[Rfam]
Betaproteobacteria toxic small RNA: a 66-nucleotide RNA from Parazoarcus communis.

Nucleotides: 066
Base pairs, nucleotide, nucleotide: 008031009030010029011028012027013025014024035059036058037057038056039055040054041053042052
Number, partner (000 for none) and nucleotide at each position: 001000u002000g003000u004000c005000u006000c007000c008031u009030c010029c011028a012027c013025c014024c015000u016000c017000c018000u019000c020000c021000u022000u023000u024014g025013g026000u027012g028011u029010g030009g031008a032000u033000u034000u035059a036058a037057c038056g039055c040054a041053g042052c043000c044000u045000c046000u047000c048000a049000g050000g051000g052042g053041c054040u055039g056038c057037g058036u059035u060000u061000u062000u063000u064000u065000u066000g
The match comes from Rfam's covariance-model search (63 bits).
On this family, see Kimelman et al., Genome Res 2012: "A vast collection of microbial genes that are toxic to bacteria".
The family's consensus secondary structure was predicted with WAR.
Overexpression in amino aid rich medium attenuates growth, suggesting role in repressing amino acid intake and metabolism.
The source organism's lineage runs through Bacteria, Pseudomonadota, Betaproteobacteria, Parazoarcus and Parazoarcus communis.